[Rfam]
RNA sequence: UAAUCAUCAAGAACCUUUUGAAUCAAGUAGUACAAUGAUUCAAAAGGUUCUUACGA
Numbered sequence: 001u002a003a004u005c006a007u008c009a010a011g012a013a014c015c016u017u018u019u020g021a022a023u024c025a026a027g028u029a030g031u032a033c034a035a036u037g038a039u040u041c042a043a044a045a046g047g048u049u050c051u052u053a054c055g056a
Base pairs, nucleotide, nucleotide: 009052010051011050012049013048014047015046016045017044018043019042020041021040022039023038024037025036
RNA: Plastid-ccsA-ndhD-1 3UTR RNA